[Rfam]
RNA sequence: GCUCUUGGGUGCCCAGUGGUCGGUGUAGGAUCUGUCUGAGGGUCUCGCUAACAGCUACAUCUGAUUACUGGGUCACCCAAGGGCGGC
Number, nucleotide and partner (000 for none) at each position: 001g000002c000003u000004c000005u000006u000007g000008g000009g000010u000011g000012c000013c071014c070015a069016g068017u067018g066019g000020u064021c063022g062023g060024u059025g058026u057027a056028g055029g000030a000031u000032c054033u053034g052035u051036c000037u000038g000039a000040g000041g000042g000043u000044c000045u000046c000047g000048c000049u000050a000051a035052c034053a033054g032055c028056u027057a026058c025059a024060u023061c000062u022063g021064a020065u000066u018067a017068c016069u015070g014071g013072g000073u000074c000075a000076c000077c000078c000079a000080a000081g000082g000083g000084c000085g000086g000087c000
The record is an 87-nucleotide RNA from Centropus unirufus, which matches "mir-221 microRNA precursor family" in Rfam. Taxonomically the source falls in Centropus (Eukaryota, Vertebrata, Archelosauria, Cuculiformes). Rfam links the family to the GO terms RISC complex and miRNA-mediated post-transcriptional gene silencing. It scores 50 bits against the family's covariance model. A reference for the family is Soares et al. (2009), "Parallel DNA pyrosequencing unveils new zebrafish microRNAs", BMC Genomics.